RNA sequence: AACUCCUGUUUCUGCCCCGUGUUCUGCGUACGCGAUAGAACACGCUGGUUCUGAUGAUGGAGGAGAGCAGGCCCGCUGGCGGCCGCCGCCGACUUGAUACUUCAGCGGACGGCGGCCGGCGGGAUCGUUCCGGGGCAAGCACCCAUCUGUCGGCCGCGUGCGGCAGACGAUGCUAGUCCCGGAUACAUCU
Numbered sequence: 001a002a003c004u005c006c007u008g009u010u011u012c013u014g015c016c017c018c019g020u021g022u023u024c025u026g027c028g029u030a031c032g033c034g035a036u037a038g039a040a041c042a043c044g045c046u047g048g049u050u051c052u053g054a055u056g057a058u059g060g061a062g063g064a065g066a067g068c069a070g071g072c073c074c075g076c077u078g079g080c081g082g083c084c085g086c087c088g089c090c091g092a093c094u095u096g097a098u099a100c101u102u103c104a105g106c107g108g109a110c111g112g113c114g115g116c117c118g119g120c121g122g123g124a125u126c127g128u129u130c131c132g133g134g135g136c137a138a139g140c141a142c143c144c145a146u147c148u149g150u151c152g153g154c155c156g157c158g159u160g161c162g163g164c165a166g167a168c169g170a171u172g173c174u175a176g177u178c179c180c181g182g183a184u185a186c187a188u189c190u
Stems, first nucleotide, its partner, number of pairs: 003062004016048002018044008072123009082113004086108004129183008148169004153164004
RNA: Small nucleolar RNA snR43